This 285-nucleotide RNA from Thelazia callipaeda belongs to the Rfam family "RNase MRP". It is annotated as a ribozyme.
RNA sequence: GGGUGAUGGGAAGUGUGACACUCGCAGGCACUCACCGGUCCUUUGAACAAUUGCUAGUCAUGUGUCCUAUGUGGCCGCAAUUCUGUGGGCGAAAGUCCCUGAACCGUGGGCUGAAAGAGUCCCAUCCAUCGAGUGGAUGUACUUGAAAGACUUCAUACAACCUAAACAGGAUCAGGAGGCUUAUUGCCGAGUCCUACGCUAGAUGAUGGUUGAGGUUUUUCGGGGGUCGUUGCUAGCACAGUGACGUUACAGUAUAACAGCACAGGGCUUACUCUCCUCUACACC
Dot-bracket structure: .((((..((((..((((((..(((((((.......(((((.(............................).)))))....)))))))....[[[.[[[[........((((.....)))).(((((.......)))))..(((.....((((((.............((((......((.....))...))))................)))))).....))).....................))))))............]]]]]]]....))).)..))))
The base pairs follow the family's consensus structure, which is taken from published work.